RNA sequence: UACAUAAGCACUUCACAACGGAUCGUCGGGCACGUACCUGCCCGUGAAGGAGAAAUAU
Dot-bracket structure: ........(.(((((...........((((((......))))))))))))........
Numbered sequence: 001u002a003c004a005u006a007a008g009c010a011c012u013u014c015a016c017a018a019c020g021g022a023u024c025g026u027c028g029g030g031c032a033c034g035u036a037c038c039u040g041c042c043c044g045u046g047a048a049g050g051a052g053a054a055a056u057a058u
Stems, first nucleotide, its partner, number of pairs: 009050001011049005027044006